The record is a 107-nucleotide RNA from Caulobacter sp. 17J65-9, which matches "Cauldobacter sRNA CC3552" in Rfam.
For this family Rfam cites "Small non-coding RNAs in Caulobacter crescentus" (Landt et al., Mol Microbiol, 2008).
Rfam classes the family as a small RNA.
RNA sequence: GGAGGCGGCGACGCCCCCCCCGACUUGAGACCGGCGCCCUGCCGGUCUGCCGUCUCCGCGCCUUAUUCUCGAUGAUGCGACUUCGGCGGGCUGGUUCUCCAGCCCGC
Numbered sequence: 001g002g003a004g005g006c007g008g009c010g011a012c013g014c015c016c017c018c019c020c021c022g023a024c025u026u027g028a029g030a031c032c033g034g035c036g037c038c039c040u041g042c043c044g045g046u047c048u049g050c051c052g053u054c055u056c057c058g059c060g061c062c063u064u065a066u067u068c069u070c071g072a073u074g075a076u077g078c079g080a081c082u083u084c085g086g087c088g089g090g091c092u093g094g095u096u097c098u099c100c101a102g103c104c105c106g107c
Base pairs, nucleotide, nucleotide: 001057002056003055004054005053006052007051008050009049010048012022013021029047030046031045032044033043034042035041086107087106088105089104090103091102092101093100094099